[Rfam]
RNA sequence: AUGAGAACAAGGGGAGAGACUACAUUUUGUAGCGCCGAAGGAGCAAGCAAGAAAUUGUGAAUCUCUCAGGCAAAAGUACACUUGUUUGACG
Numbered sequence: 001a002u003g004a005g006a007a008c009a010a011g012g013g014g015a016g017a018g019a020c021u022a023c024a025u026u027u028u029g030u031a032g033c034g035c036c037g038a039a040g041g042a043g044c045a046a047g048c049a050a051g052a053a054a055u056u057g058u059g060a061a062u063c064u065c066u067c068a069g070g071c072a073a074a075a076g077u078a079c080a081c082u083u084g085u086u087u088g089a090c091g
Base pairs, nucleotide, nucleotide: 006086007085008084009083010082011081013079020032021031022030023029034071035070036069037067038066041065042064043063047058048057